Background: The family of this 349-nucleotide part of an RNA from Thermogutta terrifontis is "Bacterial large subunit ribosomal RNA". The family's consensus secondary structure is taken from published work. Taxonomically the source falls in Thermogutta (Bacteria, Pseudomonadati, Planctomycetota, Planctomycetia).
[Rfam]
RNA sequence: CGGGAGAACGCUGGUUAAGGAACUCUGCAAAAUGGCCCCGUAACUUCGGGAGAAGGGGUGCCCUCGGAGGUGAUGAGCUUCUGGGGGUCUCAGUAAAUCGGCUCUGGCGACUGUUUAUCAAAAACACAGGACUCUGCUCAACUCGUAAGAGGAUGUAUAGAGUCUGACGCCUGCCCGGUGCCGGUAGGUUAAGGAAGCGGGUUAGCCGCAAGGCGAAGCUCGCAACCGAAGCCCCGGUAAACGGCGGCCGUAACUAUGACGGUCCUAAGGUAGCGAAGUUCCUUGGCGGGUAAGUUCCGUCCUGCAUGAAUGGCGUAACGACCGGAGCACUGUCUCAACCAGCGACCCG
Numbered sequence: 001c002g003g004g005a006g007a008a009c010g011c012u013g014g015u016u017a018a019g020g021a022a023c024u025c026u027g028c029a030a031a032a033u034g035g036c037c038c039c040g041u042a043a044c045u046u047c048g049g050g051a052g053a054a055g056g057g058g059u060g061c062c063c064u065c066g067g068a069g070g071u072g073a074u075g076a077g078c079u080u081c082u083g084g085g086g087g088u089c090u091c092a093g094u095a096a097a098u099c100g101g102c103u104c105u106g107g108c109g110a111c112u113g114u115u116u117a118u119c120a121a122a123a124a125c126a127c128a129g130g131a132c133u134c135u136g137c138u139c140a141a142c143u144c145g146u147a148a149g150a151g152g153a154u155g156u157a158u159a160g161a162g163u164c165u166g167a168c169g170c171c172u173g174c175c176c177g178g179u180g181c182c183g184g185u186a187g188g189u190u191a192a193g194g195a196a197g198c199g200g201g202u203u204a205g206c207c208g209c210a211a212g213g214c215g216a217a218g219c220u221c222g223c224a225a226c227c228g229a230a231g232c233c234c235c236g237g238u239a240a241a242c243g244g245c246g247g248c249c250g251u252a253a254c255u256a257u258g259a260c261g262g263u264c265c266u267a268a269g270g271u272a273g274c275g276a277a278g279u280u281c282c283u284u285g286g287c288g289g290g291u292a293a294g295u296u297c298c299g300u301c302c303u304g305c306a307u308g309a310a311u312g313g314c315g316u317a318a319c320g321a322c323c324g325g326a327g328c329a330c331u332g333u334c335u336c337a338a339c340c341a342g343c344g345a346c347c348c349g
Base pairs, nucleotide, nucleotide: 001349002348003347004346009344010343011342012341013340014339015338016337018335019334020333035059036058037057038056039055044049060088061087062086063085064084065083066082067081068080069079070078071077089093101328102327103326104325105324106323107322108320109319112126113125114124129165130164131163132162133161134160135159136158137155142151143150144149168315169314170313171312173245174244175243178242179241180238181237182236183235184234187233188232189231193227194226197223198222199221200220201219202218205214206213246264247263248262249261250260251259265269275302285301286300287299288298289297290296
Its family is annotated with ribosome and structural constituent of ribosome in the Gene Ontology.